[Rfam]
RNA sequence: CCAUGCUAGAUGGGGAGGUAGCGGUGCCCUGUAACCUGCAAUCCGCUAUAGCAGGAUUGAACUCCUAUUGGAGGCUUGAGUAUUUUGGGGUCUGCCCCAAGUAAGUGGUGUUGAAGUUUGGGUCCUACGCAAUAGAAGCUCAUGAACCCCGUCAGAUCCGGAAGGAAGCAGCGGUAAGUGGUCACUUUUAUGUGCCGUGGGGUCGCCUGAAUGGAGCUAACUGCUUGGGUAACGUUUGGGAUCUCAAGUCGAAUUUGGGUGCAUGG
Numbered sequence: 001c002c003a004u005g006c007u008a009g010a011u012g013g014g015g016a017g018g019u020a021g022c023g024g025u026g027c028c029c030u031g032u033a034a035c036c037u038g039c040a041a042u043c044c045g046c047u048a049u050a051g052c053a054g055g056a057u058u059g060a061a062c063u064c065c066u067a068u069u070g071g072a073g074g075c076u077u078g079a080g081u082a083u084u085u086u087g088g089g090g091u092c093u094g095c096c097c098c099a100a101g102u103a104a105g106u107g108g109u110g111u112u113g114a115a116g117u118u119u120g121g122g123u124c125c126u127a128c129g130c131a132a133u134a135g136a137a138g139c140u141c142a143u144g145a146a147c148c149c150c151g152u153c154a155g156a157u158c159c160g161g162a163a164g165g166a167a168g169c170a171g172c173g174g175u176a177a178g179u180g181g182u183c184a185c186u187u188u189u190a191u192g193u194g195c196c197g198u199g200g201g202g203u204c205g206c207c208u209g210a211a212u213g214g215a216g217c218u219a220a221c222u223g224c225u226u227g228g229g230u231a232a233c234g235u236u237u238g239g240g241a242u243c244u245c246a247a248g249u250c251g252a253a254u255u256u257g258g259g260u261g262c263a264u265g266g
Stems, first nucleotide, its partner, number of pairs: 001266006009058003012030004017025001019023001035055005064259004073250005080244001082242008093231002097228006105221002107218003116212008124201006130192002133190005138183001140181004149174004157166003
Description: The family of this 266-nucleotide sequence from Andreesenia angusta is "Bacterial large signal recognition particle RNA". The base pairs follow the family's consensus structure, which is taken from published work. From the family's description: The signal recognition particle (SRP) is a universally conserved ribonucleoprotein involved in the co-translational targeting of proteins to membranes. The literature on the family includes a 2009 paper in RNA Biol by Rosenblad et al., "Kinship in the SRP RNA family". Lineage of the source: Bacteria > Bacillati > Tissierellia > Tissierellales > Andreesenia.